TPP riboswitch aptamer (THI element): a 105-nucleotide RNA sequence.
Vitamin B(1) in its active form thiamin pyrophosphate (TPP) is an essential coenzyme that is synthesised by coupling of pyrimidine and thiazole moieties in bacteria.
RNA sequence: AGCUUGCAUGGCGGGUGUUCGUCUGCGUUUUGCAGUCGUUCUGAGAUCAUACCGUUGAAACUUGAUCUGGAUAAUUCCAGCGAAAGGACAUGCUUCUUUUCCCCU
Numbered sequence: 001a002g003c004u005u006g007c008a009u010g011g012c013g014g015g016u017g018u019u020c021g022u023c024u025g026c027g028u029u030u031u032g033c034a035g036u037c038g039u040u041c042u043g044a045g046a047u048c049a050u051a052c053c054g055u056u057g058a059a060a061c062u063u064g065a066u067c068u069g070g071a072u073a074a075u076u077c078c079a080g081c082g083a084a085a086g087g088a089c090a091u092g093c094u095u096c097u098u099u100u101c102c103c104c105u
Stems, first nucleotide, its partner, number of pairs: 006093005011055004016049001017041001020038002061086003067080004